[Rfam]
RNA: FMN riboswitch aptamer (RFN element)
RNA sequence: AGAUGUCUUCGGGGCAGGGUGAGAUUCCUGACCGGCAGUUAUAGCCUGCGAGCCGCAAUGCGGCUGAUCCGGUGUGAUCCCGGAGCCGACGGUAUAGUCCGGAUGAAAGAAGAUGACU
Numbered sequence: 001a002g003a004u005g006u007c008u009u010c011g012g013g014g015c016a017g018g019g020u021g022a023g024a025u026u027c028c029u030g031a032c033c034g035g036c037a038g039u040u041a042u043a044g045c046c047u048g049c050g051a052g053c054c055g056c057a058a059u060g061c062g063g064c065u066g067a068u069c070c071g072g073u074g075u076g077a078u079c080c081c082g083g084a085g086c087c088g089a090c091g092g093u094a095u096a097g098u099c100c101g102g103a104u105g106a107a108a109g110a111a112g113a114u115g116a117c118u
Base pairs, nucleotide, nucleotide: 004115005114006113007112008111009110010109017029018028019027031098032097033088034087035049036048037047038046044086045085052064053063054062068084069083070082071081072080090101091100092099